[Rfam]
Nucleotides: 084
Base pairs, nucleotide, nucleotide: 008078009077010076011075012074013073014072015071016070018068020066022064023063024062025061026060028058029057034052035051036050039047040046
Number, partner (000 for none) and nucleotide at each position: 001000u002000u003000a004000a005000c006000u007000c008078a009077a010076a011075u012074g013073u014072g015071u016070a017000u018068g019000u020066a021000c022064u023063u024062g025061g026060a027000a028058c029057g030000u031000u032000u033000g034052c035051c036050u037000a038000c039047g040046u041000u042000u043000g044000c045000c046040g047039c048000u049000a050036g051035g052034g053000g054000c055000g056000c057029u058028g059000g060026u061025c062024c063023a064022a065000c066020u067000g068018c069000a070016u071015a072014c073013a074012u075011a076010u077009u078008u079000g080000a081000g082000u083000u084000a